Shown here is a 94-nucleotide RNA sequence from Leuconostoc carnosum, a member of the family "Bacterial small signal recognition particle RNA". Its family is annotated with SRP-dependent cotranslational protein targeting to membrane, signal sequence recognition and signal recognition particle, plasma membrane targeting in the Gene Ontology. The base pairs follow the family's consensus structure, which is taken from published work. Clan: SRP clan. It scores 52 bits against the family's covariance model. For this family Rfam cites "SRPDB: Signal Recognition Particle Database" (Rosenblad et al., Nucleic Acids Res, 2003).
[Rfam]
RNA sequence: AUAGUAAAGCAGGCAAGCGUCGGCUCCCGAACUGGGUCAGGACAGGAAUGUAGCAGCCCUAAGGUUGUUCGAAGUUGUGCUUGUGUACAUAUUU
Numbered sequence: 001a002u003a004g005u006a007a008a009g010c011a012g013g014c015a016a017g018c019g020u021c022g023g024c025u026c027c028c029g030a031a032c033u034g035g036g037u038c039a040g041g042a043c044a045g046g047a048a049u050g051u052a053g054c055a056g057c058c059c060u061a062a063g064g065u066u067g068u069u070c071g072a073a074g075u076u077g078u079g080c081u082u083g084u085g086u087a088c089a090u091a092u093u094u
Stems, first nucleotide, its partner, number of pairs: 003093004009084005014077001016076003020072002023068002027064002034059004042051003